[Rfam]
RNA: Small nucleolar RNA F1/F2/snoR5a
RNA sequence: AUUUGCCCAUGGUAUCUGAUGUCCAGACGUUUGGCUAUUCCUGUGGCUGGACAUUUCGUUUAAAGGGCAUAAAGAGAUUUCUUACAGGACUUGCGACACAGUUGGCUUUUUGCUAUAAGCCUACUGUUACUAUACACCUGUUUACAUGU
Numbered sequence: 001a002u003u004u005g006c007c008c009a010u011g012g013u014a015u016c017u018g019a020u021g022u023c024c025a026g027a028c029g030u031u032u033g034g035c036u037a038u039u040c041c042u043g044u045g046g047c048u049g050g051a052c053a054u055u056u057c058g059u060u061u062a063a064a065g066g067g068c069a070u071a072a073a074g075a076g077a078u079u080u081c082u083u084a085c086a087g088g089a090c091u092u093g094c095g096a097c098a099c100a101g102u103u104g105g106c107u108u109u110u111u112g113c114u115a116u117a118a119g120c121c122u123a124c125u126g127u128u129a130c131u132a133u134a135c136a137c138c139u140g141u142u143u144a145c146a147u148g149u
Stems, first nucleotide, its partner, number of pairs: 004069005018055009028045002084141004098127005104121004